[Rfam]
RNA: Guanidine-I riboswitch aptamer
RNA sequence: UGAACGGUUUUCUAGGGUUCCGUAGCUUUAAGCUGGUCUGGUCCGAGAGAAAACACACAGUUCAACUGUGACACGGAGGGACAAAAGCCCGGGAGAU
Numbered sequence: 001u002g003a004a005c006g007g008u009u010u011u012c013u014a015g016g017g018u019u020c021c022g023u024a025g026c027u028u029u030a031a032g033c034u035g036g037u038c039u040g041g042u043c044c045g046a047g048a049g050a051a052a053a054c055a056c057a058c059a060g061u062u063c064a065a066c067u068g069u070g071a072c073a074c075g076g077a078g079g080g081a082c083a084a085a086a087g088c089c090c091g092g093g094a095g096a097u
Base pairs, nucleotide, nucleotide: 007054008053009052010051011050012049015044016043020041021040022038023035024034025033026032027031056070057069058068059067060066061065072092074095078090079089080088